RNA: UnaL2 LINE 3' element
RNA sequence: GAGACUCCAAUUUAUAAGUCGCUCUGGAUAAGAGCGUCUGCUAGAUGACGUAAA
Dot-bracket structure: ............(.((...((((((.....))))))..))..)...........